Shown here is a 155-nucleotide sequence from Endobacter medicaginis, a member of the family "6S / SsrS RNA".
The match comes from Rfam's covariance-model search (67 bits).
The literature on the family includes a 2000 paper in Cell by Wassarman and Storz, "6S RNA regulates E. coli RNA polymerase activity".

RNA sequence: GCGGGGCUGCCCGGUUCGACGGCAAUUCAUCCCCUGGGCCGAUAAGCACUUCCUCGGGAGCUGGCUCUGACGUGGCCUUGGUCACGUUAUCCGGCGCCCACCUGCACUUGCAGGCUCUGGGAGGCUGACAGUCCGACGGCCAUGGCGGCUCCGCA
Numbered sequence: 001g002c003g004g005g006g007c008u009g010c011c012c013g014g015u016u017c018g019a020c021g022g023c024a025a026u027u028c029a030u031c032c033c034c035u036g037g038g039c040c041g042a043u044a045a046g047c048a049c050u051u052c053c054u055c056g057g058g059a060g061c062u063g064g065c066u067c068u069g070a071c072g073u074g075g076c077c078u079u080g081g082u083c084a085c086g087u088u089a090u091c092c093g094g095c096g097c098c099c100a101c102c103u104g105c106a107c108u109u110g111c112a113g114g115c116u117c118u119g120g121g122a123g124g125c126u127g128a129c130a131g132u133c134c135g136a137c138g139g140c141c142a143u144g145g146c147g148g149c150u151c152c153g154c155a
Base pairs, nucleotide, nucleotide: 002153003152004151005150006149007148008147009146010145011144013141014140015139017138018137030122031121032120033119036117037116038115039114040113056099057098058097060095061094062093063092064091069088070087071086072085073084074083075082076081